Mammalian CPEB3 ribozyme: a 75-nucleotide RNA from Crocodylus porosus. Its family is annotated with RNA nuclease activity in the Gene Ontology. The match comes from Rfam's covariance-model search (44 bits). The base pairs follow the family's consensus structure, which is taken from published work. Rfam's curators write: The mammalian CPEB3 ribozyme is a self cleaving RNA located in the second intron of the CPEB3 gene which belongs to a family of genes regulating messenger RNA polyadenylation. NCBI's taxonomy places the organism under Eukaryota, Teleostomi, Euteleostomi, Longirostres, Crocodylus.
RNA sequence: AUAGCAAUAGAAGGCUAUAGCAGAAGUGCUCAUGGUGCAGCCCUAUCAGAUUCCAGUGAAUCUAAUAAUUCUACU
Numbered sequence: 001a002u003a004g005c006a007a008u009a010g011a012a013g014g015c016u017a018u019a020g021c022a023g024a025a026g027u028g029c030u031c032a033u034g035g036u037g038c039a040g041c042c043c044u045a046u047c048a049g050a051u052u053c054c055a056g057u058g059a060a061u062c063u064a065a066u067a068a069u070u071c072u073a074c075u
Base pairs, nucleotide, nucleotide: 013042014041015040016039019075020074022072023071024070025069026038027037028036048063049062050061051060052059053058
Dot-bracket structure: ............((((..[[.[[[[(((.......))))))).....((((((....)))))).....]]]].]]